[Rfam]
Nucleotides: 125
Base pairs, nucleotide, nucleotide: 001125002124003123004122005121006120007119008118009117010116011115012114014112015111017109018108019107021105022104023103024102025101026100027099028098029097030096031095032094033093034092035091036090037089038088039087042084043083044082045081046080047079
Number, partner (000 for none) and nucleotide at each position: 001125g002124g003123a004122a005121u006120a007119u008118a009117a010116g011115a012114a013000c014112u015111c016000u017109u018108c019107u020000c021105u022104u023103a024102a025101c026100u027099u028098u029097u030096a031095a032094u033093u034092a035091g036090a037089a038088a039087a040000g041000c042084u043083a044082a045081g046080a047079a048000c049000c050000a051000a052000u053000u054000c055000u056000u057000a058000a059000a060000u061000a062000a063000g064000a065000g066000u067000u068000u069000u070000a071000a072000g073000a074000a075000c076000c077000g078000g079047u080046u081045c082044u083043u084042a085000a086000c087039u088038u089037u090036u091035u092034u093033a094032g095031u096030u097029a098028a099027a100026a101025g102024u103023u104022a105021a106000u107019a108018g109017a110000c111015g112014g113000a114012u115011u116010c117009u118008u119007a120006u121005a122004u123003u124002c125001c
Rfam assigns this 125-nucleotide RNA sequence from Brassica carinata to the family "MIR9563 microRNA precursor family". The organism belongs to Brassica, within Eukaryota. The family's consensus secondary structure was predicted with RNAalifold. Its family is annotated with RISC complex and miRNA-mediated post-transcriptional gene silencing in the Gene Ontology.